[Rfam]
RNA: Y RNA
Organism: Saimiri boliviensis
RNA sequence: AGCUGGAUCUGAGGGUAGUGGGUUAUCAAAAUAUAACAUUAGUGUCACUAAAGUUAGUCUACAAGCCCUCACUGCUACAUUUGGCAGGUUUAAA
Numbered sequence: 001a002g003c004u005g006g007a008u009c010u011g012a013g014g015g016u017a018g019u020g021g022g023u024u025a026u027c028a029a030a031a032u033a034u035a036a037c038a039u040u041a042g043u044g045u046c047a048c049u050a051a052a053g054u055u056a057g058u059c060u061a062c063a064a065g066c067c068c069u070c071a072c073u074g075c076u077a078c079a080u081u082u083g084g085c086a087g088g089u090u091u092a093a094a
Base pairs, nucleotide, nucleotide: 001090002089003088004087006085008084009083011082012081015078016077017073018072019071020070021069022068028058031055